RNA sequence: CUGGCAGUCCCAAAGUGCUCACAGUGCAGAUAGUUUACACUUAUCUACUGCAGUCUGCGCACUUCAAGUAUUACCGG
Numbered sequence: 001c002u003g004g005c006a007g008u009c010c011c012a013a014a015g016u017g018c019u020c021a022c023a024g025u026g027c028a029g030a031u032a033g034u035u036u037a038c039a040c041u042u043a044u045c046u047a048c049u050g051c052a053g054u055c056u057g058c059g060c061a062c063u064u065c066a067a068g069u070a071u072u073a074c075c076g077g
Base pairs, nucleotide, nucleotide: 004074006072007071010068013064014063015062016061017060018059020057021056023054025052026051027050029049031047032046033045
The family of this 77-nucleotide RNA sequence from Merluccius polli is "mir-17 microRNA precursor family". A search with the family's covariance model found it, with a score of 57 bits. Rfam 15.1 lists 4,687 matches to the family in 648 species. The base pairs follow the family's consensus structure, which was predicted with RNAalifold. A reference for the family is Lagos-Quintana et al. (2001), "Identification of novel genes coding for small expressed RNAs", Science. About the family: This family represents the microRNA (miRNA) precursor mir-17, family, which includes mir-20, mir-91, and mir-103. miRNAs are transcribed as ~70nt precursors (modelled here) and subsequently processed by the Dicer enzyme to give a ~22nt product. In this case the mature sequence comes from the 3' arm of the precursor. The extents of the hairpin precursors are not generally known and are estimated based on hairpin prediction.